The family of this 152-nucleotide RNA from Clytia hemisphaerica is "U12 minor spliceosomal RNA".
[Rfam]
RNA sequence: CAGCCUUAAACUUAUGAGUAAGGAAAAUAAAUGCCUGGGUGACGCCGGGUAUACGCAUUACUGAUGCAUUAGUAAUAUUUGGAGGGUGGCAGGCUGCCCUUGGGCUUGACUCGCCUACUUCUGCGAGUCGCCCUUGUUUAGGCGGCCUCCAU
Dot-bracket structure: ...(((((..........))))).......((((((((......))))))))(.(((.......))).)................((((..(((((((..((.(..((.(((((........))))).))..).))....))))))).))))
The organism belongs to Clytia, within Eukaryota. Its Rfam clan is "U2 clan". It scores 87 bits against the family's covariance model.